[Rfam]
RNA sequence: GAGAGGAGGGGCAGGCGAUCGCGUCCUUGCUGUCGCCACCAGACAGCGGGAUGAGGAAAGUCCGGGCUUUCAGAAGAACACACCGCUGGGGAAAGCCCAGUGCGGGUAACCGCGAGGAUAGUGCCACAGAAACAUACCGCCGAUGGCUGGGAUCCCAGCACAGGUAAGGGUGCAAAGGUGGGGUAAGAGCCCACCAGCAACGUCGUGAGGCGUUGGCUCGGUAAACCCCGGUGGAAAGCAAGGCCGCAGCCGCAGGAUCAUGGCUGUUCUUCGCCCCUGUUGGCUGCAUCGAGAUCACGGUACCCAAAGUGGGGAAGGGUGCUCUCGAUGGUGGUGAGCCGCUAGAGGGUGAUGGUAACAUCACUCCCAGAUGGAUGAUCGCCAGUGCAACUCUGCACUACAGAACCCGGCUUACAACCUCCUCUCUUUU
Numbered sequence: 001g002a003g004a005g006g007a008g009g010g011g012c013a014g015g016c017g018a019u020c021g022c023g024u025c026c027u028u029g030c031u032g033u034c035g036c037c038a039c040c041a042g043a044c045a046g047c048g049g050g051a052u053g054a055g056g057a058a059a060g061u062c063c064g065g066g067c068u069u070u071c072a073g074a075a076g077a078a079c080a081c082a083c084c085g086c087u088g089g090g091g092a093a094a095g096c097c098c099a100g101u102g103c104g105g106g107u108a109a110c111c112g113c114g115a116g117g118a119u120a121g122u123g124c125c126a127c128a129g130a131a132a133c134a135u136a137c138c139g140c141c142g143a144u145g146g147c148u149g150g151g152a153u154c155c156c157a158g159c160a161c162a163g164g165u166a167a168g169g170g171u172g173c174a175a176a177g178g179u180g181g182g183g184u185a186a187g188a189g190c191c192c193a194c195c196a197g198c199a200a201c202g203u204c205g206u207g208a209g210g211c212g213u214u215g216g217c218u219c220g221g222u223a224a225a226c227c228c229c230g231g232u233g234g235a236a237a238g239c240a241a242g243g244c245c246g247c248a249g250c251c252g253c254a255g256g257a258u259c260a261u262g263g264c265u266g267u268u269c270u271u272c273g274c275c276c277c278u279g280u281u282g283g284c285u286g287c288a289u290c291g292a293g294a295u296c297a298c299g300g301u302a303c304c305c306a307a308a309g310u311g312g313g314g315a316a317g318g319g320u321g322c323u324c325u326c327g328a329u330g331g332u333g334g335u336g337a338g339c340c341g342c343u344a345g346a347g348g349g350u351g352a353u354g355g356u357a358a359c360a361u362c363a364c365u366c367c368c369a370g371a372u373g374g375a376u377g378a379u380c381g382c383c384a385g386u387g388c389a390a391c392u393c394u395g396c397a398c399u400a401c402a403g404a405a406c407c408c409g410g411c412u413u414a415c416a417a418c419c420u421c422c423u424c425u426c427u428u429u430u
Base pairs, nucleotide, nucleotide: 001426002425003424004423005422006421007420008419009418011415014383015382016381017380018379019378020377022053023052024051025050026049027048029047030046031045032044033043034042058413059412060411062410063409064408065407066406067238068237069236070235081233082232083231084230085229086100087099088098089097090096101115102113103112104111105110116228117227121226122225123222124221125220137169138168139165140164141163146159147158148157149156150155177195178194179193180192181191182190197217198215199214200213201212202211203210204209242340243339244338250331251330252329255326347366348365349364350363351362352361353360354359
Rfam assigns this 430-nucleotide RNA from Synechococcus sp. JA-2-3B'a(2-13) to the family "Bacterial RNase P class A".
Gene Ontology terms of the family: tRNA processing, ribonuclease P activity and dimeric ribonuclease P complex.